This 130-nucleotide sequence from Enterovirus betacoxsackie belongs to the Rfam family "Enteroviral 3' UTR element". Pairs were carried over by alignment from the consensus structure, which was predicted with PFOLD. NCBI's taxonomy places the organism under Viruses, Pisoniviricetes, Picornaviridae, Enterovirus, Enterovirus B. Rfam's curators put it in the seed alignment. The literature on the family includes a 1999 paper in Nucleic Acids Res by Wang et al., "Structural requirements of the higher order RNA kissing element in the enteroviral 3'UTR". By type it is a cis-regulatory element. About the family: This RNA structure is found in the 3' UTR of various enteroviruses. The overall structure forms the origin of replication (OriR) for the initiation of (-) strand RNA synthesis. Pseudoknots have also been predicted in this structure. Its family is annotated with RNA replication in the Gene Ontology.

[Rfam]
RNA sequence: AAAUGGUUGGACUCUUUUUAGAUUAGAGACAAUUUGAAUAAUUUAAAUUGGCUUAACCCUACUGCAUUAACCGAACUAGACAACAAUGCAGUAGGGGUAAAUUUUCCGCGUUCGGUGCGGAAAAAAAAAA
Numbered sequence: 001a002a003a004u005g006g007u008u009g010g011a012c013u014c015u016u017u018u019u020a021g022a023u024u025a026g027a028g029a030c031a032a033u034u035u036g037a038a039u040a041a042u043u044u045a046a047a048u049u050g051g052c053u054u055a056a057c058c059c060u061a062c063u064g065c066a067u068u069a070a071c072c073g074a075a076c077u078a079g080a081c082a083a084c085a086a087u088g089c090a091g092u093a094g095g096g097g098u099a100a101a102u103u104u105u106c107c108g109c110g111u112u113c114g115g116u117g118c119g120g121a122a123a124a125a126a127a128a129a130a
Base pairs, nucleotide, nucleotide: 024056026054027053028052030050031049032048033047034046035045036044037043038042057096058095059094060093061092062091063090064089065088066087067086068085070116071115072114073113074112075111106120107119108118109117